[Rfam]
Source information
A member of the RNA family "FMN riboswitch aptamer (RFN element)" from Alkalibaculum bacchi, 116 nucleotides long. The base pairs follow the family's consensus structure, which is taken from published work.

RNA sequence: UUAAAUUCUCAGGGCAGGGUGCAAUUCCCGACCGGCGGUAAAGUCCGCGAGCCUUUUUAGGUUGACUUGGUGCAAUUCCAAGACCGACAGUAAAGUCUGGAUGAGAGAGGAUUAAU
Dot-bracket structure: ...(((((((......(((.......))).[[((((((....[[))))..(((......)))...(((((.......)))))]])).(((....]]))).......)))))))...
The source organism's lineage runs through Bacteria, Bacillota, Clostridia, Eubacteriaceae and Alkalibaculum. The match comes from Rfam's covariance-model search (122 bits).